[Rfam]
RNA sequence: GUGAACGAAGUCACAAAAACCUUAUACCCCUUUGUUUGACCGUGAAAAAUUUCUCCCAUCCCCUUUGUUGUCUUGGCAACAAGGAAAAGCCCGGCAUUCAGCCGGGCUUUUCCU
Numbered sequence: 001g002u003g004a005a006c007g008a009a010g011u012c013a014c015a016a017a018a019a020c021c022u023u024a025u026a027c028c029c030c031u032u033u034g035u036u037u038g039a040c041c042g043u044g045a046a047a048a049a050u051u052u053c054u055c056c057c058a059u060c061c062c063c064u065u066u067g068u069u070g071u072c073u074u075g076g077c078a079a080c081a082a083g084g085a086a087a088a089g090c091c092c093g094g095c096a097u098u099c100a101g102c103c104g105g106g107c108u109u110u111u112c113c114u
Stems, first nucleotide, its partner, number of pairs: 003053003011045004018036003024033001069081001085111011
RNA Staph. aureus E (RoxS): a 114-nucleotide sequence from Geobacillus sp. WCH70.
The family's RNA type in Rfam is small RNA.
The base pairs follow the family's consensus structure, which is taken from published work.
The literature on the family includes a 2009 paper in Nucleic Acids Res by Geissmann et al., "A search for small noncoding RNAs in Staphylococcus aureus reveals a conserved sequence motif for regulation".
Rfam describes the family as follows. It was shown to be regulated by the presence of nitric oxide (NO).